Bacteroidetes FopS (family of paralogous sRNAs): a 60-nucleotide RNA from Bacteroides sp. OM05-12. Rfam links the family to the GO term sRNA-mediated gene silencing. The source organism's lineage runs through Bacteria, Bacteroidota, Bacteroidia, Bacteroidaceae and Bacteroides. The RNA-binding protein RbpB and BTncRNA_FopS sRNA are involved in the post-transcription regulation of polysaccharide utilisation loci (PUL). FopS sRNAs function as post-transcriptional repressors by binding to the vicinity of the start codon of the first mRNA of target PUL polycistrons, typically corresponding to the cognate SusC homolog, impeding translation of the respective glycan transporter. The literature on the family includes a 2025 paper in Nat Commun by Ruttiger et al., "The global RNA-binding protein RbpB is a regulator of polysaccharide utilization in Bacteroides thetaiotaomicron".
RNA sequence: GUGUUUUUCAUAGUAUUAGAUUUUAAGGUUAACAAAGGUUGGAGUACAGCGGUACUCCUU
Numbered sequence: 001g002u003g004u005u006u007u008u009c010a011u012a013g014u015a016u017u018a019g020a021u022u023u024u025a026a027g028g029u030u031a032a033c034a035a036a037g038g039u040u041g042g043a044g045u046a047c048a049g050c051g052g053u054a055c056u057c058c059u060u
Stems, first nucleotide, its partner, number of pairs: 041058007